[Rfam]
mir-190 microRNA precursor family: a 75-nucleotide RNA sequence from Hymenochirus boettgeri. A search with the family's covariance model found it, with a score of 78 bits. Its family is annotated with miRNA-mediated post-transcriptional gene silencing and RISC complex in the Gene Ontology.

RNA sequence: GCCCCUGUCUGAUAUGUUUGAUAUAUUAGGUUGUAAAUUAAUCCAACUAUAUAUCAAACAUAUGGCUACAGUGUC
Number, nucleotide and partner (000 for none) at each position: 001g000002c000003c000004c000005c071006u070007g069008u068009c000010u000011g000012a063013u062014a061015u060016g059017u058018u057019u056020g055021a054022u053023a052024u051025a050026u000027u000028a000029g048030g047031u046032u045033g044034u000035a000036a000037a000038u000039u000040a000041a000042u000043c000044c033045a032046a031047c030048u029049a000050u025051a024052u023053a022054u021055c020056a019057a018058a017059c016060a015061u014062a013063u012064g000065g000066c000067u000068a008069c007070a006071g005072u000073g000074u000075c000